[Rfam]
RNA sequence: ACUGAAUAUACAGCGCCAGAACAGGAAACUGUUGACGAGGAAGAUGGUUAUCGAAAAUUCGGCGGAUGCCAUCACGGAUAGUAGCUAUUCGAUAGUUGAUGUAACAAACCACUUGGGCAACUGAGUGAACAAAAGACAUCAGCAUAGCACAA
Numbered sequence: 001a002c003u004g005a006a007u008a009u010a011c012a013g014c015g016c017c018a019g020a021a022c023a024g025g026a027a028a029c030u031g032u033u034g035a036c037g038a039g040g041a042a043g044a045u046g047g048u049u050a051u052c053g054a055a056a057a058u059u060c061g062g063c064g065g066a067u068g069c070c071a072u073c074a075c076g077g078a079u080a081g082u083a084g085c086u087a088u089u090c091g092a093u094a095g096u097u098g099a100u101g102u103a104a105c106a107a108a109c110c111a112c113u114u115g116g117g118c119a120a121c122u123g124a125g126u127g128a129a130c131a132a133a134a135g136a137c138a139u140c141a142g143c144a145u146a147g148c149a150c151a152a
Stems, first nucleotide, its partner, number of pairs: 020033005043073004051062004075091006096142007110127007